[Rfam]
RNA: Bacterial RNase P class A
Organism: Dechloromonas sp. HYN0024
RNA sequence: AAAGUCGGCCAGGCAAUCGCUGGAUGUCCGAAGGUAACUUCGGCGUCGGGAGGAAAGUCCGGGCUCCAUUGGGCGGGAUGCCAGUUAACGGCUGGGUGCUAUAAGUCGCAUGACGAAAGUUGUGUGGCCCAAGGCAACGGAAAGUGCAACAGAGAAUAGACCGCCUAAGUUCAGGUUCGCCUGAAACGGUAAGGGUGAAACGGCGAGGUAAGAGCUCACCGCGCUGGCGGUAACGUUCAGCGGCACGGUAAACCCCAUCCGGAGCAAGACCAAAUAGGGAAGCUGAGGCGUGGCCCGCGCUGCUUCCGGGUAGGUUGCUUGAGCCUGUCAGUAAUGGCAGGCCUAGAGGAAUGAUUGCCGAACCCCGCAAGGGGGGAACAGAACCCGGCUUAUCGGCCGGCUUUCCAC
Numbered sequence: 001a002a003a004g005u006c007g008g009c010c011a012g013g014c015a016a017u018c019g020c021u022g023g024a025u026g027u028c029c030g031a032a033g034g035u036a037a038c039u040u041c042g043g044c045g046u047c048g049g050g051a052g053g054a055a056a057g058u059c060c061g062g063g064c065u066c067c068a069u070u071g072g073g074c075g076g077g078a079u080g081c082c083a084g085u086u087a088a089c090g091g092c093u094g095g096g097u098g099c100u101a102u103a104a105g106u107c108g109c110a111u112g113a114c115g116a117a118a119g120u121u122g123u124g125u126g127g128c129c130c131a132a133g134g135c136a137a138c139g140g141a142a143a144g145u146g147c148a149a150c151a152g153a154g155a156a157u158a159g160a161c162c163g164c165c166u167a168a169g170u171u172c173a174g175g176u177u178c179g180c181c182u183g184a185a186a187c188g189g190u191a192a193g194g195g196u197g198a199a200a201c202g203g204c205g206a207g208g209u210a211a212g213a214g215c216u217c218a219c220c221g222c223g224c225u226g227g228c229g230g231u232a233a234c235g236u237u238c239a240g241c242g243g244c245a246c247g248g249u250a251a252a253c254c255c256c257a258u259c260c261g262g263a264g265c266a267a268g269a270c271c272a273a274a275u276a277g278g279g280a281a282g283c284u285g286a287g288g289c290g291u292g293g294c295c296c297g298c299g300c301u302g303c304u305u306c307c308g309g310g311u312a313g314g315u316u317g318c319u320u321g322a323g324c325c326u327g328u329c330a331g332u333a334a335u336g337g338c339a340g341g342c343c344u345a346g347a348g349g350a351a352u353g354a355u356u357g358c359c360g361a362a363c364c365c366c367g368c369a370a371g372g373g374g375g376g377a378a379c380a381g382a383a384c385c386c387g388g389c390u391u392a393u394c395g396g397c398c399g400g401c402u403u404u405c406c407a408c
Base pairs, nucleotide, nucleotide: 001404002403003402004401005400006399007398008397009396010395011393012359013358014357015356016355017354018353020050021049023047024046025045026044027043028042055391056390057389059388060387061386062385063384064264065263066262067261071296072295073294074293076260077259078258079257080256081095082094083093084092085091096138097136098135099134100133139255140254144253145252146249147248161194162193163190164189165188170185171184172183173182174181175180202220203219205217206216207215221244222242223241224240225239226238227236228235229234268316269315270314271313278307279306280305281304282303283302287301288300289299290298291297323342324341325340326339327338328337329336330335